About this RNA:
Glycine riboswitch aptamer: a 100-nucleotide RNA sequence from Duganella sp. 1224.
RNA sequence: GGCUCAAACUCUGGAGAGAGGUUGCAGCGGCAACCCACCGAAGGGGCGUGCGGAACCAGCUUUCCGCUAUCUCUCAGGUACCAAGGACAGAGGGGCGCAA
Numbered sequence: 001g002g003c004u005c006a007a008a009c010u011c012u013g014g015a016g017a018g019a020g021g022u023u024g025c026a027g028c029g030g031c032a033a034c035c036c037a038c039c040g041a042a043g044g045g046g047c048g049u050g051c052g053g054a055a056c057c058a059g060c061u062u063u064c065c066g067c068u069a070u071c072u073c074u075c076a077g078g079u080a081c082c083a084a085g086g087a088c089a090g091a092g093g094g095g096c097g098c099a100a
Base pairs, nucleotide, nucleotide: 009092010091011090012089013088020035021034022033023032037079038078039077040075041074044073045072046071050067051066052065053064054063
Description:
Lineage of the source: Bacteria > Pseudomonadota > Betaproteobacteria > Oxalobacteraceae > Duganella.